Shown here is a 63-nucleotide RNA from Roseomonas mucosa, a member of the family "Fluoride riboswitch aptamer (crcB RNA motif)".
Pairs were carried over by alignment from the consensus structure, which is taken from published work.
RNA sequence: GUUCCCGAUGGGGAUGGGGUUCCCCCGAAACCGCCCAGAUGGGCUGAUGACUCCUACCGCAAC
Numbered sequence: 001g002u003u004c005c006c007g008a009u010g011g012g013g014a015u016g017g018g019g020u021u022c023c024c025c026c027g028a029a030a031c032c033g034c035c036c037a038g039a040u041g042g043g044c045u046g047a048u049g050a051c052u053c054c055u056a057c058c059g060c061a062a063c
Stems, first nucleotide, its partner, number of pairs: 010026004016054006033044004